[Rfam]
RNA sequence: GGCGCACGUUACGAGGCUAUGCUUCCGGCCUGGCCCUACCUUGCGUGCGCAUAGCUCCGGGACAUACACUACGUCUGGUCGUGACGACUGCGACUGUACUGACCCGAACAUU
Numbered sequence: 001g002g003c004g005c006a007c008g009u010u011a012c013g014a015g016g017c018u019a020u021g022c023u024u025c026c027g028g029c030c031u032g033g034c035c036c037u038a039c040c041u042u043g044c045g046u047g048c049g050c051a052u053a054g055c056u057c058c059g060g061g062a063c064a065u066a067c068a069c070u071a072c073g074u075c076u077g078g079u080c081g082u083g084a085c086g087a088c089u090g091c092g093a094c095u096g097u098a099c100u101g102a103c104c105c106g107a108a109c110a111u112u
Stems, first nucleotide, its partner, number of pairs: 002050008015035004021029002058106004067086001070083004

A member of the RNA family "Small nucleolar RNA GlsR26" from Giardia duodenalis, 112 nucleotides long. The family's RNA type in Rfam is H/ACA-box small nucleolar RNA. It is one of the family's seed sequences. The family's consensus secondary structure was predicted with WAR. Lineage of the source: Eukaryota > Metamonada > Fornicata > Diplomonadida > Giardia duodenalis.